[Rfam]
RNA sequence: UGUCAAGAGUCUUGGCGCCGUUUUGGUGAGCAGAUUUCCUUUGCCUGAGCGAGGCAAGGAUCAUG
Numbered sequence: 001u002g003u004c005a006a007g008a009g010u011c012u013u014g015g016c017g018c019c020g021u022u023u024u025g026g027u028g029a030g031c032a033g034a035u036u037u038c039c040u041u042u043g044c045c046u047g048a049g050c051g052a053g054g055c056a057a058g059g060a061u062c063a064u065g
Stems, first nucleotide, its partner, number of pairs: 009061005017055003021052002024049001028046001030044005
RNA: S-element